[Rfam]
RNA sequence: AGGAGGGACAACCCCACUGGCGGCGGCCAGCUCUCCAGCCCUGGAGUCAGCUCUAGCAGGAACUACCGCAGCUCCCAGUCCACAGGGGCCUGGGUGCUCCAGAGGCGG
Numbered sequence: 001a002g003g004a005g006g007g008a009c010a011a012c013c014c015c016a017c018u019g020g021c022g023g024c025g026g027c028c029a030g031c032u033c034u035c036c037a038g039c040c041c042u043g044g045a046g047u048c049a050g051c052u053c054u055a056g057c058a059g060g061a062a063c064u065a066c067c068g069c070a071g072c073u074c075c076c077a078g079u080c081c082a083c084a085g086g087g088g089c090c091u092g093g094g095u096g097c098u099c100c101a102g103a104g105g106c107g108g
Stems, first nucleotide, its partner, number of pairs: 002100004007095001009092002012088003019080003023076001025075002029073004033068001037064001040060004
mir-8834 microRNA precursor family: a 108-nucleotide RNA from Canis lupus. The organism belongs to Canis lupus, within Eukaryota. Gene Ontology terms of the family: RISC complex and miRNA-mediated post-transcriptional gene silencing. A search with the family's covariance model found it, with a score of 42 bits.